A member of the RNA family "Glycine riboswitch aptamer" from Sinomonas sp., 83 nucleotides long. The match comes from Rfam's covariance-model search (36 bits).
Nucleotides: 083
Stems, first nucleotide, its partner, number of pairs: 001083005012025004027072003030068002034066001036064001
Number, partner (000 for none) and nucleotide at each position: 001083c002082u003081c004080u005079g006000g007000a008000a009000a010000g011000c012025a013024g014023c015022c016000c017000u018000g019000a020000c021000g022015g023014g024013c025012u026000c027072a028071c029070c030068g031067a032000c033000g034066g035000u036064g037000c038000a039000a040000g041000c042000u043000g044000g045000c046000c047000c048000u049000c050000a051000a052000g053000g054000c055000c056000g057000g058000u059000g060000g061000a062000a063000u064036c065000u066034c067031u068030c069000a070029g071028g072027u073000c074000c075000c076000a077000u078000a079005c080004a081003g082002a083001g